[Rfam]
RNA: miR-430 microRNA precursor family
Organism: Dissostichus mawsoni
RNA sequence: AUUAUUACCUUUACAAAAACACUAACUUUUUACAUUGCAGUAAGUGCUUUUGUUGGGGUAGUUUUG
Numbered sequence: 001a002u003u004a005u006u007a008c009c010u011u012u013a014c015a016a017a018a019a020c021a022c023u024a025a026c027u028u029u030u031u032a033c034a035u036u037g038c039a040g041u042a043a044g045u046g047c048u049u050u051u052g053u054u055g056g057g058g059u060a061g062u063u064u065u066g
Base pairs, nucleotide, nucleotide: 004062005061006060007059008058009057010056011055013053014052015051016050017049018048020046021045022044023043025041026040027039